[Rfam]
RNA: mir-137 microRNA precursor family
Organism: Culex quinquefasciatus
RNA sequence: GUUGGCCACGCGUAUUCUUGGGUUACUAACACACUGUUUAUGUUGUUAUUGCUUGAGAAUACACGUAGUUGAC
Numbered sequence: 001g002u003u004g005g006c007c008a009c010g011c012g013u014a015u016u017c018u019u020g021g022g023u024u025a026c027u028a029a030c031a032c033a034c035u036g037u038u039u040a041u042g043u044u045g046u047u048a049u050u051g052c053u054u055g056a057g058a059a060u061a062c063a064c065g066u067a068g069u070u071g072a073c
Stems, first nucleotide, its partner, number of pairs: 001073005008066003012062012025050001027048005032042002
Dot-bracket structure: (((((..(((.((((((((((((.(.(((((((.......)).))))).))))))))))))).)))..)))))